mir-375 microRNA precursor family: a 66-nucleotide sequence from Mytilus coruscus. On this family, see Chen et al., Genes Dev 2005: "The developmental miRNA profiles of zebrafish as determined by small RNA cloning". Taxonomically the source falls in Mytilus (Eukaryota, Mollusca, Bivalvia, Autobranchia). The match comes from Rfam's covariance-model search (56 bits).
RNA sequence: AAUUACACGAGCCAUUCGUAACAGGGCGUAUAUGCUAUUGUUUUGUUCGUUCGGCUCGCGUUAUUC
Numbered sequence: 001a002a003u004u005a006c007a008c009g010a011g012c013c014a015u016u017c018g019u020a021a022c023a024g025g026g027c028g029u030a031u032a033u034g035c036u037a038u039u040g041u042u043u044u045g046u047u048c049g050u051u052c053g054g055c056u057c058g059c060g061u062u063a064u065u066c
Stems, first nucleotide, its partner, number of pairs: 001065003005061002008058006017049002021046004026041002